[Rfam]
RNA: Methylobacterium-1 RNA
Nucleotides: 103
Base pairs, nucleotide, nucleotide: 004033005032006031007030008029011026039056040055041054042053043052058094059093060092061091062090063089064088065087066086067085069084070083071082072081
Number, partner (000 for none) and nucleotide at each position: 001000c002000a003000a004033g005032u006031u007030g008029a009000a010000a011026a012000a013000u014000g015000g016000u017000g018000u019000c020000u021000a022000a023000a024000u025000a026011u027000u028000a029008u030007c031006a032005g033004c034000a035000g036000g037000a038000c039056g040055a041054g042053g043052g044000a045000g046000a047000u048000a049000u050000a051000a052043c053042c054041c055040u056039c057000a058094c059093a060092a061091g062090a063089u064088g065087c066086a067085g068000a069084a070083u071082u072081u073000a074000u075000c076000c077000u078000c079000a080000c081072a082071g083070a084069u085067u086066u087065g088064u089063a090062u091061c092060u093059u094058g095000a096000c097000c098000g099000u100000a101000g102000u103000u